[Rfam]
RAGATH-17 RNA: a 96-nucleotide RNA. The base pairs follow the family's consensus structure, which is taken from published work. Rfam's curators put it in the seed alignment.
RNA sequence: GAGGGCAAAAGUCCUCGGUAGUAUAGCGAAAAUCAUAAAUAAGAAGAGCUCUAAGCGCCUAAGUAGAGUUAAAAUAAUUAGACAGGCACUAUUGCA
Numbered sequence: 001g002a003g004g005g006c007a008a009a010a011g012u013c014c015u016c017g018g019u020a021g022u023a024u025a026g027c028g029a030a031a032a033u034c035a036u037a038a039a040u041a042a043g044a045a046g047a048g049c050u051c052u053a054a055g056c057g058c059c060u061a062a063g064u065a066g067a068g069u070u071a072a073a074a075u076a077a078u079u080a081g082a083c084a085g086g087c088a089c090u091a092u093u094g095c096a
Stems, first nucleotide, its partner, number of pairs: 001016006048069006057087004